Shown here is a 56-nucleotide RNA from Hevea brasiliensis, a member of the family "Plastid-rps18 3UTR RNA". The organism belongs to Hevea, within Eukaryota. A search with the family's covariance model found it, with a score of 61 bits. Rfam describes the family as follows. Plastid rps18 is a non-coding RNA (ncRNA) present in plastids. The family's RNA type in Rfam is cis-regulatory element.
[Rfam]
RNA sequence: UGCAAGUAGUUUGCGAUUAAGAAUGACUGUCUCUUGUACAGAUUGUUUAUUAAUCU
Numbered sequence: 001u002g003c004a005a006g007u008a009g010u011u012u013g014c015g016a017u018u019a020a021g022a023a024u025g026a027c028u029g030u031c032u033c034u035u036g037u038a039c040a041g042a043u044u045g046u047u048u049a050u051u052a053a054u055c056u
Base pairs, nucleotide, nucleotide: 018036019035020034021033022032024029
Dot-bracket structure: .................(((((.(....)..)))))....................